[Rfam]
RNA sequence: AGUCUAUGACAGUGUAAGAAUAGUGGAUGAAAAGAAUUUCUGAAAAUUUUUAUUCUGAGACU
Numbered sequence: 001a002g003u004c005u006a007u008g009a010c011a012g013u014g015u016a017a018g019a020a021u022a023g024u025g026g027a028u029g030a031a032a033a034g035a036a037u038u039u040c041u042g043a044a045a046a047u048u049u050u051u052a053u054u055c056u057g058a059g060a061c062u
Base pairs, nucleotide, nucleotide: 001062002061003060004059
RNA: Small nucleolar RNA SNORD75
Organism: Sciurus carolinensis